[Rfam]
RNA sequence: UGCAGGUGAUGUGAAGGAAUAUUUGCUAUCCGAGAGUUGGUGAUGACGCUUGAAACCACCAAGAUCGCUGAUGCA
Numbered sequence: 001u002g003c004a005g006g007u008g009a010u011g012u013g014a015a016g017g018a019a020u021a022u023u024u025g026c027u028a029u030c031c032g033a034g035a036g037u038u039g040g041u042g043a044u045g046a047c048g049c050u051u052g053a054a055a056c057c058a059c060c061a062a063g064a065u066c067g068c069u070g071a072u073g074c075a
Stems, first nucleotide, its partner, number of pairs: 001075004
Record summary: Small nucleolar RNA SNORD24: a 75-nucleotide sequence from Canis lupus. The family's consensus secondary structure was predicted with PFOLD.